[Rfam]
RNA sequence: AUCCAAAGCCAAACACACCUUUCUACAAACUUCCCCAAGUUUCCCACCCAAAUCUAUUCAUCAUGAACCCCUGCUCCUGCAACUGCUGCUCCGGCAACUGCAACUCCUGCUCUUGCAGCAGCUGCAAGGUAUGUCCACAUCCGUU
Numbered sequence: 001a002u003c004c005a006a007a008g009c010c011a012a013a014c015a016c017a018c019c020u021u022u023c024u025a026c027a028a029a030c031u032u033c034c035c036c037a038a039g040u041u042u043c044c045c046a047c048c049c050a051a052a053u054c055u056a057u058u059c060a061u062c063a064u065g066a067a068c069c070c071c072u073g074c075u076c077c078u079g080c081a082a083c084u085g086c087u088g089c090u091c092c093g094g095c096a097a098c099u100g101c102a103a104c105u106c107c108u109g110c111u112c113u114u115g116c117a118g119c120a121g122c123u124g125c126a127a128g129g130u131a132u133g134u135c136c137a138c139a140u141c142c143g144u145u
Base pairs, nucleotide, nucleotide: 072096073095074094075093079089080088081087100125101124102123109116110115
RNA: A. fumigatus sRNA Afu_254